Rfam assigns this 113-nucleotide RNA sequence from Pseudoalteromonas translucida to the family "TPP riboswitch aptamer (THI element)".
Rfam's curators write: Vitamin B(1) in its active form thiamin pyrophosphate (TPP) is an essential coenzyme that is synthesised by coupling of pyrimidine and thiazole moieties in bacteria.
The base pairs follow the family's consensus structure, which is taken from published work.
RNA sequence: UAAUACUUGUCGGAGUGCCUAACUAAAUAAUUAGUUAAGGCUGAGAUCGCGAAAGCGGGAUCCGUGAACCUGAUCAGGCUAAUACCUGCGUAGGGAACAAGCUGCCUAAAAUA
Numbered sequence: 001u002a003a004u005a006c007u008u009g010u011c012g013g014a015g016u017g018c019c020u021a022a023c024u025a026a027a028u029a030a031u032u033a034g035u036u037a038a039g040g041c042u043g044a045g046a047u048c049g050c051g052a053a054a055g056c057g058g059g060a061u062c063c064g065u066g067a068a069c070c071u072g073a074u075c076a077g078g079c080u081a082a083u084a085c086c087u088g089c090g091u092a093g094g095g096a097a098c099a100a101g102c103u104g105c106c107u108a109a110a111a112u113a
Stems, first nucleotide, its partner, number of pairs: 006101005011064004016058001017041004048057003069094004075088004